[Rfam]
RNA: mir-124 microRNA precursor family
Organism: Cloeon dipterum
RNA sequence: UUCUCCUCGUGUUCACUGUUGGCCAUGUGUCACAAUUCAAAACAUAAGGCACGCGGUGAAUGCCAAGAGAG
Dot-bracket structure: ..(((...((((((((.((...((.(((((...........))))).))...)).))))))))...)))..
Numbered sequence: 001u002u003c004u005c006c007u008c009g010u011g012u013u014c015a016c017u018g019u020u021g022g023c024c025a026u027g028u029g030u031c032a033c034a035a036u037u038c039a040a041a042a043c044a045u046a047a048g049g050c051a052c053g054c055g056g057u058g059a060a061u062g063c064c065a066a067g068a069g070a071g
Stems, first nucleotide, its partner, number of pairs: 003069003009063008018054002023049002026046005